The record is an 88-nucleotide sequence from Dioscorea zingiberensis, which matches "MIR397 microRNA precursor family" in Rfam. The family has 7 seed sequences and 496 matches in Rfam 15.1. Pairs were carried over by alignment from the consensus structure, which was predicted with WAR.
RNA sequence: AUCAAAAACAUCAUUGAGUGCAGCGUUGAUGAAUAAUUCCAAGUCCCGAUGGAAAAUUUCACCAGCGCUGCAUUCAAUUAUGUAUUUG
Numbered sequence: 001a002u003c004a005a006a007a008a009c010a011u012c013a014u015u016g017a018g019u020g021c022a023g024c025g026u027u028g029a030u031g032a033a034u035a036a037u038u039c040c041a042a043g044u045c046c047c048g049a050u051g052g053a054a055a056a057u058u059u060c061a062c063c064a065g066c067g068c069u070g071c072a073u074u075c076a077a078u079u080a081u082g083u084a085u086u087u088g
Base pairs, nucleotide, nucleotide: 006085008083009082010081011080013078014077015076016075017074018073019072020071021070022069023068024067025066026065027064028063030061031060032059

Annotation: Gene Ontology terms of the family: RISC complex and miRNA-mediated post-transcriptional gene silencing. On this family, see Mica et al., BMC Genomics 2009: "High throughput approaches reveal splicing of primary microRNA transcripts and tissue specific expression of mature microRNAs in Vitis vinifera".